The record is a 67-nucleotide RNA from Pedobacter cryotolerans, which matches "Fluoride riboswitch aptamer (crcB RNA motif)" in Rfam. The match comes from Rfam's covariance-model search (40 bits). Gene Ontology terms of the family: positive regulation of gene expression and response to fluoride. The source organism's lineage runs through Bacteria, Pseudomonadati, Sphingobacteriia, Sphingobacteriaceae and Pedobacter.
RNA sequence: UGCUCAUAAGGAAAUGGUGUCUUCCUAUUCGAACCGCCCUAAAAAAGCUGAUGACGCCUGGUUAUAA
Numbered sequence: 001u002g003c004u005c006a007u008a009a010g011g012a013a014a015u016g017g018u019g020u021c022u023u024c025c026u027a028u029u030c031g032a033a034c035c036g037c038c039c040u041a042a043a044a045a046a047g048c049u050g051a052u053g054a055c056g057c058c059u060g061g062u063u064a065u066a067a
Base pairs, nucleotide, nucleotide: 010025011024012023013022016058017057018056019055020054021053036048037047